Rfam assigns this 76-nucleotide RNA sequence from Bradyrhizobium diazoefficiens to the family "chrB-a RNA". It is annotated as a cis-regulatory element.
[Rfam]
RNA sequence: GCUACGGGGAUGUGCGAUCUCCCCGAGAGGCGCCAUGCCCAAGAAUCGCGUCCUGAUCUACCAAGGGCGCAGCAUG
Numbered sequence: 001g002c003u004a005c006g007g008g009g010a011u012g013u014g015c016g017a018u019c020u021c022c023c024c025g026a027g028a029g030g031c032g033c034c035a036u037g038c039c040c041a042a043g044a045a046u047c048g049c050g051u052c053c054u055g056a057u058c059u060a061c062c063a064a065g066g067g068c069g070c071a072g073c074a075u076g
Stems, first nucleotide, its partner, number of pairs: 005025006048070006